[Rfam]
RNA: Small nucleolar RNA Z247
Organism: Setaria viridis
RNA sequence: CCACUCGACAAUGAUGAGAUGAUCACCUACAUCAUGAACAGCCUUGACCACGACUUCAAUCCGAUUGUCUCUGCUUUGAUAACUAGGGUUGAGCCGAUUUCGGUAGCUGAGUUGUAUUCCAAUUGCUCAGCUUUGAAA
Numbered sequence: 001c002c003a004c005u006c007g008a009c010a011a012u013g014a015u016g017a018g019a020u021g022a023u024c025a026c027c028u029a030c031a032u033c034a035u036g037a038a039c040a041g042c043c044u045u046g047a048c049c050a051c052g053a054c055u056u057c058a059a060u061c062c063g064a065u066u067g068u069c070u071c072u073g074c075u076u077u078g079a080u081a082a083c084u085a086g087g088g089u090u091g092a093g094c095c096g097a098u099u100u101c102g103g104u105a106g107c108u109g110a111g112u113u114g115u116a117u118u119c120c121a122a123u124u125g126c127u128c129a130g131c132u133u134u135g136a137a138a
Base pairs, nucleotide, nucleotide: 005136006135007134008133093108095106097104098103